The family of this 62-nucleotide RNA sequence from Pontimonas salivibrio is "msiK RNA". By type it is a cis-regulatory element.
RNA sequence: GGCCACCGUCUCAUUCACAACGGAUCGUCCGGCACGUACCUGCCGGUGAAGAGGAGAAAAAA
Numbered sequence: 001g002g003c004c005a006c007c008g009u010c011u012c013a014u015u016c017a018c019a020a021c022g023g024a025u026c027g028u029c030c031g032g033c034a035c036g037u038a039c040c041u042g043c044c045g046g047u048g049a050a051g052a053g054g055a056g057a058a059a060a061a062a
Base pairs, nucleotide, nucleotide: 010053011052012051014050015049016048017047029046030045031044032043033042034041